[Rfam]
RNA: Bacterial large subunit ribosomal RNA, nucleotides 1631 to 1992
RNA sequence: UGAGAGAACUCGGGUGAAGGAACUAGGCAAAAUGGUACCGUAACUUCGGGAGAAGGUACGCUCCUCGCGGUGAAGUCCCUUGCGGAUGGAGCUAUGGGGAGUCGCAGAUACCAGGUGGCUGCAACUGUUUAUUAAAAACACAGCACUGUGCAAAAUCGUAAGAUGACGUAUACGGUGUGACGCCUGCCCGGUGCCGGAAGGUUAAUUGAUGGGGUUAGACUUCGGUCGAAGCUCUUGAUCGAAGCCCCGGUAAACGGCGGCCGUAACUAUAACGGUCCUAAGGUAGCGAAAUUCCUUGUCGGGUAAGUUCCGACCUGCACGAAUGGCGUAAUGAUGGCCACGCUGUCUCCACCCGAGACUCA
Numbered sequence: 001u002g003a004g005a006g007a008a009c010u011c012g013g014g015u016g017a018a019g020g021a022a023c024u025a026g027g028c029a030a031a032a033u034g035g036u037a038c039c040g041u042a043a044c045u046u047c048g049g050g051a052g053a054a055g056g057u058a059c060g061c062u063c064c065u066c067g068c069g070g071u072g073a074a075g076u077c078c079c080u081u082g083c084g085g086a087u088g089g090a091g092c093u094a095u096g097g098g099g100a101g102u103c104g105c106a107g108a109u110a111c112c113a114g115g116u117g118g119c120u121g122c123a124a125c126u127g128u129u130u131a132u133u134a135a136a137a138a139c140a141c142a143g144c145a146c147u148g149u150g151c152a153a154a155a156u157c158g159u160a161a162g163a164u165g166a167c168g169u170a171u172a173c174g175g176u177g178u179g180a181c182g183c184c185u186g187c188c189c190g191g192u193g194c195c196g197g198a199a200g201g202u203u204a205a206u207u208g209a210u211g212g213g214g215u216u217a218g219a220c221u222u223c224g225g226u227c228g229a230a231g232c233u234c235u236u237g238a239u240c241g242a243a244g245c246c247c248c249g250g251u252a253a254a255c256g257g258c259g260g261c262c263g264u265a266a267c268u269a270u271a272a273c274g275g276u277c278c279u280a281a282g283g284u285a286g287c288g289a290a291a292u293u294c295c296u297u298g299u300c301g302g303g304u305a306a307g308u309u310c311c312g313a314c315c316u317g318c319a320c321g322a323a324u325g326g327c328g329u330a331a332u333g334a335u336g337g338c339c340a341c342g343c344u345g346u347c348u349c350c351a352c353c354c355g356a357g358a359c360u361c362a
Base pairs, nucleotide, nucleotide: 001362002361003360004359009357010356011355012354013353014352015351016350018348019347020346035059036058037057038056039055044049060102061101062100063099064098065097076091103107115341116340117339118338119337120336121335122333123332126140127139128138143178144177145176146175147174148173149172150171151168155164156163157162181328182327183326184325186258187257188256191255192254193251194250195249196248197247200246201245202244211235212234213233214232215231218227219226259277260276261275262274263273264272278282288315298314299313300312301311302310303309